[Rfam]
RNA sequence: UAACCUCUGACGAAAGACGUGAAAGUUG
Numbered sequence: 001u002a003a004c005c006u007c008u009g010a011c012g013a014a015a016g017a018c019g020u021g022a023a024a025g026u027u028g
Stems, first nucleotide, its partner, number of pairs: 001028004008023001010020003
Shown here is a 28-nucleotide sequence from Weeksella massiliensis, a member of the family "L19-Flavobacteria ribosomal protein leader". Taxonomically the source falls in Weeksella (Bacteria, Pseudomonadati, Flavobacteriia, Flavobacteriales). For this family Rfam cites "Discovery of 20 novel ribosomal leader candidates in bacteria and archaea" (Eckert and Weinberg, BMC Microbiol, 2020). Pairs were carried over by alignment from the consensus structure, which is taken from published work.